[Rfam]
RNA sequence: GAAUGCGGCUGAUGCGUGGGCAUAAUAUAGCGGAACCAUAACCGCUAAAGUGAAGCGACGCAUAAAGAAACAGGUAGUGCUUUUGCCUGUGGUGGAGCAGAAACAGAACACCGCCGUGAGAAGACACGUUAAAAUCUAGUGUUCACUGCGUGGAACGGUGGGGAAUUCAUCUUAGAUGAAUGUGGAGCCCCACGUUAAAAUAAAAAGCCUAUUGCCACACGGUGCUUCAUCUGCAAUGCGUUCCGGGUAGACAAAUUUGGGGCCAACCGCUGGUGAAAGCACCGCCAGCGGUAUGCG
Numbered sequence: 001g002a003a004u005g006c007g008g009c010u011g012a013u014g015c016g017u018g019g020g021c022a023u024a025a026u027a028u029a030g031c032g033g034a035a036c037c038a039u040a041a042c043c044g045c046u047a048a049a050g051u052g053a054a055g056c057g058a059c060g061c062a063u064a065a066a067g068a069a070a071c072a073g074g075u076a077g078u079g080c081u082u083u084u085g086c087c088u089g090u091g092g093u094g095g096a097g098c099a100g101a102a103a104c105a106g107a108a109c110a111c112c113g114c115c116g117u118g119a120g121a122a123g124a125c126a127c128g129u130u131a132a133a134a135u136c137u138a139g140u141g142u143u144c145a146c147u148g149c150g151u152g153g154a155a156c157g158g159u160g161g162g163g164a165a166u167u168c169a170u171c172u173u174a175g176a177u178g179a180a181u182g183u184g185g186a187g188c189c190c191c192a193c194g195u196u197a198a199a200a201u202a203a204a205a206a207g208c209c210u211a212u213u214g215c216c217a218c219a220c221g222g223u224g225c226u227u228c229a230u231c232u233g234c235a236a237u238g239c240g241u242u243c244c245g246g247g248u249a250g251a252c253a254a255a256u257u258u259g260g261g262g263c264c265a266a267c268c269g270c271u272g273g274u275g276a277a278a279g280c281a282c283c284g285c286c287a288g289c290g291g292u293a294u295g296c297g
Stems, first nucleotide, its partner, number of pairs: 004054001006052002029046005036260003040256001058241006070090007077282007091231008266292010
RNA: FuFi-1 RNA